[Rfam]
RNA sequence: CCACGCAAGGAUCGCCCCCAGUCAGCGCGUUGCGCCCACUGGGGUUAAACUG
Numbered sequence: 001c002c003a004c005g006c007a008a009g010g011a012u013c014g015c016c017c018c019c020a021g022u023c024a025g026c027g028c029g030u031u032g033c034g035c036c037c038a039c040u041g042g043g044g045u046u047a048a049a050c051u052g
Base pairs, nucleotide, nucleotide: 016044017043018042019041020040021039022038025035026034027033028032
The record is a 52-nucleotide RNA from Octadecabacter arcticus, which matches "ffh sRNA" in Rfam. On this family, see Meyer et al., BMC Genomics 2009: "Identification of candidate structured RNAs in the marine organism 'Candidatus Pelagibacter ubique'". NCBI's taxonomy places the organism under Bacteria, Pseudomonadati, Pseudomonadota, Alphaproteobacteria, Octadecabacter arcticus. Rfam's curators put it in the seed alignment.